[Rfam]
RNA sequence: GCGGCAGUAUUAAAGUGCUUAUAGUGCAGGUAGUCUGGUCUGUAGCGCUUCUACUGCAGUGUGAGCACUUGAAGUACUUCCAG
Numbered sequence: 001g002c003g004g005c006a007g008u009a010u011u012a013a014a015g016u017g018c019u020u021a022u023a024g025u026g027c028a029g030g031u032a033g034u035c036u037g038g039u040c041u042g043u044a045g046c047g048c049u050u051c052u053a054c055u056g057c058a059g060u061g062u063g064a065g066c067a068c069u070u071g072a073a074g075u076a077c078u079u080c081c082a083g
Base pairs, nucleotide, nucleotide: 004080006078007077009075010074011073013070014069015068016067017066018065019064020063021062022061023060025058026057027056029055030054031053032052033051
mir-17 microRNA precursor family: an 83-nucleotide sequence from Hemibagrus wyckioides.
Pairs were carried over by alignment from the consensus structure, which was predicted with RNAalifold.
Rfam describes the family as follows. This family represents the microRNA (miRNA) precursor mir-17, family, which includes mir-20, mir-91, and mir-103. miRNAs are transcribed as ~70nt precursors (modelled here) and subsequently processed by the Dicer enzyme to give a ~22nt product. In this case the mature sequence comes from the 3' arm of the precursor. The extents of the hairpin precursors are not generally known and are estimated based on hairpin prediction.
Lineage of the source: Eukaryota > Opisthokonta > Euteleostomi > Siluriformes > Hemibagrus.